[Rfam]
RNA sequence: GUUUGUGUUCUUCCACAGCUUUCUUGAACUGCAUGGUUAUUAUUGGAGAGAUGUGAGGAGAUGAGAUGAGACCCAUCUUCUCUUUUCCCCCCCCUUUUUUUUUGGCUUGUCCUCUUCUUUUCGUGCGGUUCAAUAAAGCUGUGGGAAGAUACAGAGA
Numbered sequence: 001g002u003u004u005g006u007g008u009u010c011u012u013c014c015a016c017a018g019c020u021u022u023c024u025u026g027a028a029c030u031g032c033a034u035g036g037u038u039a040u041u042a043u044u045g046g047a048g049a050g051a052u053g054u055g056a057g058g059a060g061a062u063g064a065g066a067u068g069a070g071a072c073c074c075a076u077c078u079u080c081u082c083u084u085u086u087c088c089c090c091c092c093c094c095u096u097u098u099u100u101u102u103u104g105g106c107u108u109g110u111c112c113u114c115u116u117c118u119u120u121u122c123g124u125g126c127g128g129u130u131c132a133a134u135a136a137a138g139c140u141g142u143g144g145g146a147a148g149a150u151a152c153a154g155a156g157a
Base pairs, nucleotide, nucleotide: 003154004153005152006151007150013144014143015142017140018139019138020137021136022135024133025132026131027130029128030127031126032125033124034123035122036121
RNA: MIR396 microRNA precursor family